[Rfam]
Overview
Shown here is an 80-nucleotide RNA from Streptococcus pneumoniae, a member of the family "Streptococcus sRNA SpF01". On this family, see Mann et al., PLoS Pathog 2012: "Control of virulence by small RNAs in Streptococcus pneumoniae".
RNA sequence: AUUUUAUUAAAUAUGAUAGGCUGUAAAGCCUUGAAACUAAGCACUUUAGGCCUCUAUCCUAGAGUGCUUUUUUGAUUUCU
Numbered sequence: 001a002u003u004u005u006a007u008u009a010a011a012u013a014u015g016a017u018a019g020g021c022u023g024u025a026a027a028g029c030c031u032u033g034a035a036a037c038u039a040a041g042c043a044c045u046u047u048a049g050g051c052c053u054c055u056a057u058c059c060u061a062g063a064g065u066g067c068u069u070u071u072u073u074g075a076u077u078u079c080u
Stems, first nucleotide, its partner, number of pairs: 018080003031075001034072001039069007048060003